The family of this 97-nucleotide sequence from Leersia tisserantii is "Plastid-rps12 3UTR RNA". About the family: Plastid rpl20 is a non-coding RNA (ncRNA) recognised in plastids. It was found in the three prime untranslated region (3UTR) of rps12 gene, its 3UTR location sugest a role in transcript maduration. The sequence is in the family's curated seed alignment. A reference for the family is Richter et al. (2023), "Retrograde signaling in plants: A critical review focusing on the GUN pathway and beyond", Plant Commun. The family's RNA type in Rfam is cis-regulatory element.
RNA sequence: GGUUUCCUUUGGUGCAAAUCUAAUCUCUAGAUUGGAAAUAAGAAGCAAUUCCCCCAUUGGUAGCAAACGGCUAUUCAUUAAGCGGAGGAAAUAGUAA
Numbered sequence: 001g002g003u004u005u006c007c008u009u010u011g012g013u014g015c016a017a018a019u020c021u022a023a024u025c026u027c028u029a030g031a032u033u034g035g036a037a038a039u040a041a042g043a044a045g046c047a048a049u050u051c052c053c054c055c056a057u058u059g060g061u062a063g064c065a066a067a068c069g070g071c072u073a074u075u076c077a078u079u080a081a082g083c084g085g086a087g088g089a090a091a092u093a094g095u096a097a
Base pairs, nucleotide, nucleotide: 009023010022011021012020051087054085055084056078057077059075060074061073062072063071064070